A member of the RNA family "Actino-pnp RNA" from Nocardioides sp. Root1257, 57 nucleotides long.
The source organism's lineage runs through Bacteria, Bacillati, Actinomycetota, Nocardioidaceae and Nocardioides.
It scores 62 bits against the family's covariance model.
RNA sequence: CCCGGUCCUCGGUAGUGGCUUCCGCUGUAGCAGCGUGGGCCUCGAUCGAAGACCGGC
Numbered sequence: 001c002c003c004g005g006u007c008c009u010c011g012g013u014a015g016u017g018g019c020u021u022c023c024g025c026u027g028u029a030g031c032a033g034c035g036u037g038g039g040c041c042u043c044g045a046u047c048g049a050a051g052a053c054c055g056g057c
Stems, first nucleotide, its partner, number of pairs: 002056006009049005017041005023035005